[Rfam]
Notes
The record is a 132-nucleotide RNA from Castor canadensis, which matches "Small nucleolar RNA SNORA51" in Rfam. Rfam links the family to the GO terms nucleolus and RNA processing. Rfam's curators write: ACA51 is a member of the H/ACA class of snoRNA that guide the sites of modification of uridines to pseudouridines. It is annotated as an H/ACA-box small nucleolar RNA.

RNA sequence: GCCCUCCUGGUGCUUCCCACAGGUGGUGUUCUUACACUGAUUGUAGAGAAAGAGGAGGGAAAGUAAACUUAUCCCAUAUACACCUCAGCCCAGGCCCUGUGCCUGGUCUGUAUUAUGAGUGGGAAAACAUGG
Numbered sequence: 001g002c003c004c005u006c007c008u009g010g011u012g013c014u015u016c017c018c019a020c021a022g023g024u025g026g027u028g029u030u031c032u033u034a035c036a037c038u039g040a041u042u043g044u045a046g047a048g049a050a051a052g053a054g055g056a057g058g059g060a061a062a063g064u065a066a067a068c069u070u071a072u073c074c075c076a077u078a079u080a081c082a083c084c085u086c087a088g089c090c091c092a093g094g095c096c097c098u099g100u101g102c103c104u105g106g107u108c109u110g111u112a113u114u115a116u117g118a119g120u121g122g123g124a125a126a127a128c129a130u131g132g
Stems, first nucleotide, its partner, number of pairs: 002059007020043003026037004072124006086110003090106006